[Rfam]
RNA: c-di-GMP-I riboswitch aptamer
RNA sequence: UAAUUAUAAAGGCAAACUUGUUGAAAAGCAAGGACGCAAAGCUUGAAACCUAAAGGAAUUUAUACAAAAGAAACCUUAUUAUGGACUGUAUAAUUAUUCAUCCAAUGGUCGUUCGGUUGCAACU
Dot-bracket structure: ...........((...((((((....))))))...))..((((.((((((....(((...........................................)))...)))..)))))))......
Numbered sequence: 001u002a003a004u005u006a007u008a009a010a011g012g013c014a015a016a017c018u019u020g021u022u023g024a025a026a027a028g029c030a031a032g033g034a035c036g037c038a039a040a041g042c043u044u045g046a047a048a049c050c051u052a053a054a055g056g057a058a059u060u061u062a063u064a065c066a067a068a069a070g071a072a073a074c075c076u077u078a079u080u081a082u083g084g085a086c087u088g089u090a091u092a093a094u095u096a097u098u099c100a101u102c103c104a105a106u107g108g109u110c111g112u113u114c115g116g117u118u119g120c121a122a123c124u
Stems, first nucleotide, its partner, number of pairs: 012037002017032006040118004045114003048109003055103003